[Rfam]
Rfam assigns this 141-nucleotide sequence from Pararhizobium polonicum to the family "Alphaproteobacterial sRNA ar35". A reference for the family is del Val et al. (2012), "A survey of sRNA families in alpha-proteobacteria", RNA Biol. Rfam 15.1 lists 266 matches to the family in 153 species. Rfam classes the family as a small RNA.
RNA sequence: UUCCGCUGUGUCUUGAAAUGGUUACAUUCCCUUGCCAUAUUGCACCCAUGGAAUUCGUUUCCAGCGGUUGACCACGGAUGUACUGGCAAUCGUUGUCGAGACGGGUCGGAGAGGUCGGGUUUUCACCCGGCCUUUUUCUUU
Dot-bracket structure: ..(((..((......(((((...............))).))..))...)))...((((((..((((..((.(((.........)))))..))))....))))))(..(((((((((((.(....).)))))))))))..).
Numbered sequence: 001u002u003c004c005g006c007u008g009u010g011u012c013u014u015g016a017a018a019u020g021g022u023u024a025c026a027u028u029c030c031c032u033u034g035c036c037a038u039a040u041u042g043c044a045c046c047c048a049u050g051g052a053a054u055u056c057g058u059u060u061c062c063a064g065c066g067g068u069u070g071a072c073c074a075c076g077g078a079u080g081u082a083c084u085g086g087c088a089a090u091c092g093u094u095g096u097c098g099a100g101a102c103g104g105g106u107c108g109g110a111g112a113g114g115u116c117g118g119g120u121u122u123u124c125a126c127c128c129g130g131c132c133u134u135u136u137u138c139u140u141u
Stems, first nucleotide, its partner, number of pairs: 003051003008045002016041002018038003055104006063094004069088002072086003105140001108137011120125001